[Rfam]
RNA sequence: UUCUGGAUGAAGAAGAAAAUCAAUCGGAUUCCUAUUUAUUCUUCAAUAUGAUUUUAACAACCAGCUAUUUCUGACAGAA
Numbered sequence: 001u002u003c004u005g006g007a008u009g010a011a012g013a014a015g016a017a018a019a020u021c022a023a024u025c026g027g028a029u030u031c032c033u034a035u036u037u038a039u040u041c042u043u044c045a046a047u048a049u050g051a052u053u054u055u056a057a058c059a060a061c062c063a064g065c066u067a068u069u070u071c072u073g074a075c076a077g078a079a
Stems, first nucleotide, its partner, number of pairs: 001079005